[Rfam]
A member of the RNA family "mir-320 microRNA precursor family" from Propithecus coquereli, 76 nucleotides long. Lineage of the source: Eukaryota > Metazoa > Primates > Lemuriformes > Propithecus.
RNA sequence: AGAACUUACGGCUUGCUCUUCCUGGUUCUUCCCGGAGUUGGGAAAAGAUGGGUUGCGAGGGCAGAAAAAGAAAAAA
Number, nucleotide and partner (000 for none) at each position: 001a000002g000003a000004a000005c000006u000007u000008a000009c000010g000011g000012c000013u000014u059015g000016c057017u000018c055019u000020u000021c052022c051023u050024g049025g000026u000027u000028c000029u044030u043031c042032c041033c040034g039035g000036a000037g000038u000039u034040g033041g032042g031043a030044a029045a000046a000047g000048a000049u024050g023051g022052g021053u000054u000055g018056c000057g016058a000059g014060g000061g000062c000063a000064g000065a000066a000067a000068a000069a000070g000071a000072a000073a000074a000075a000076a000